Shown here is a 69-nucleotide sequence from Gulo gulo, a member of the family "Small nucleolar RNA sn3071".
RNA sequence: AAUGUAUGUUGUGACUUUCACAAUGAUCAUCUCUUGAAAUAACAGAAUUACUUCUGUGAUGCUGACAUU
Numbered sequence: 001a002a003u004g005u006a007u008g009u010u011g012u013g014a015c016u017u018u019c020a021c022a023a024u025g026a027u028c029a030u031c032u033c034u035u036g037a038a039a040u041a042a043c044a045g046a047a048u049u050a051c052u053u054c055u056g057u058g059a060u061g062c063u064g065a066c067a068u069u
Base pairs, nucleotide, nucleotide: 001069002068003067004066
Taxonomically the source falls in Gulo (Eukaryota, Eumetazoa, Theria, Caniformia).